[Rfam]
RNA sequence: AAGUAGUCAUAAUACUGGCGGAUAAUUAUGGAGUUAACCAUAGGGGAUUAUGACUUAUAUAAUAAAUUAGCCGACCGCCUGGGCAGAUAGU
Numbered sequence: 001a002a003g004u005a006g007u008c009a010u011a012a013u014a015c016u017g018g019c020g021g022a023u024a025a026u027u028a029u030g031g032a033g034u035u036a037a038c039c040a041u042a043g044g045g046g047a048u049u050a051u052g053a054c055u056u057a058u059a060u061a062a063u064a065a066a067u068u069a070g071c072c073g074a075c076c077g078c079c080u081g082g083g084c085a086g087a088u089a090g091u
Stems, first nucleotide, its partner, number of pairs: 005055008015045002017079005028041004068086001070084003